[Rfam]
RNA sequence: CGCCGGGUACGUGACUGGCGACGCCGCAGCACCGCCACCGGGCGGGUGCGGCACGAGGUGGACAACCACCGGGGAGCGUGCCCGGUGCUGGCCACGACCUCACACGCCGAUCGCCUGGGUGGGUGAC
Numbered sequence: 001c002g003c004c005g006g007g008u009a010c011g012u013g014a015c016u017g018g019c020g021a022c023g024c025c026g027c028a029g030c031a032c033c034g035c036c037a038c039c040g041g042g043c044g045g046g047u048g049c050g051g052c053a054c055g056a057g058g059u060g061g062a063c064a065a066c067c068a069c070c071g072g073g074g075a076g077c078g079u080g081c082c083c084g085g086u087g088c089u090g091g092c093c094a095c096g097a098c099c100u101c102a103c104a105c106g107c108c109g110a111u112c113g114c115c116u117g118g119g120u121g122g123g124u125g126a127c
Stems, first nucleotide, its partner, number of pairs: 003085010015073002017115005058069004105121004